[Rfam]
RNA sequence: AGCGAGGCUAGAGUCACGCCUGGAUACACCCGUUGUCCCGGUGUGCUAGAGUGCUCGUAGAAGAAAUAUCUUUGCUUAUUCAUUGGCUGUAGUCUGUUGUGACCCAGUCAAUCACCAACAAAGAUACAUUA
Numbered sequence: 001a002g003c004g005a006g007g008c009u010a011g012a013g014u015c016a017c018g019c020c021u022g023g024a025u026a027c028a029c030c031c032g033u034u035g036u037c038c039c040g041g042u043g044u045g046c047u048a049g050a051g052u053g054c055u056c057g058u059a060g061a062a063g064a065a066a067u068a069u070c071u072u073u074g075c076u077u078a079u080u081c082a083u084u085g086g087c088u089g090u091a092g093u094c095u096g097u098u099g100u101g102a103c104c105c106a107g108u109c110a111a112u113c114a115c116c117a118a119c120a121a122a123g124a125u126a127c128a129u130u131a
Stems, first nucleotide, its partner, number of pairs: 002058005007052003012047002015045006023037004070123005076117001082112005088106002092103003
Dot-bracket structure: .((((((((..((.((((((..((((.......))))..))))))))..))).)))))...........(((((.(.....(((((.((..(((......))).)).)))))....).)))))........
Small nucleolar RNA SNORA3/SNORA45 family: a 131-nucleotide RNA sequence from Notothenia coriiceps. A search with the family's covariance model found it, with a score of 86 bits. Rfam describes the family as follows. The members of this family belong to the H/ACA class of snoRNAs which are thought to guide the sites of modification of uridines to pseudouridines. This family includes mouse snoMBI-28 and human homologues ACA3 (SNORA3) and ACA3-2 (SNORA45). Both ACA3 and ACA3-2 share the same host gene. MBI-28, ACA3 and ACA3-2 are all predicted to guide the pseudouridylation of residues in 28S rRNA. Its Rfam clan is "SNORA3 clan". A reference for the family is Huttenhofer et al. (2001), "RNomics: an experimental approach that identifies 201 candidates for novel, small, non-messenger RNAs in mouse", EMBO J.